A member of the RNA family "mir-3473 microRNA precursor family" from Nannospalax galili, 83 nucleotides long.
RNA sequence: ACCGCUGAGCCAUCUCUCCAGCCCUACUCUAAAUUUUUAAACUUCAAAAAGUAAAUCUAGUGCUGGAGAGAUGGCUCAGCGGU
Numbered sequence: 001a002c003c004g005c006u007g008a009g010c011c012a013u014c015u016c017u018c019c020a021g022c023c024c025u026a027c028u029c030u031a032a033a034u035u036u037u038u039a040a041a042c043u044u045c046a047a048a049a050a051g052u053a054a055a056u057c058u059a060g061u062g063c064u065g066g067a068g069a070g071a072u073g074g075c076u077c078a079g080c081g082g083u
Stems, first nucleotide, its partner, number of pairs: 002082021024060003

The family has 5 seed sequences and 1,094 matches in Rfam 15.1.
Taxonomically the source falls in Nannospalax (Eukaryota, Teleostomi, Theria, Spalacidae).
It scores 75 bits against the family's covariance model.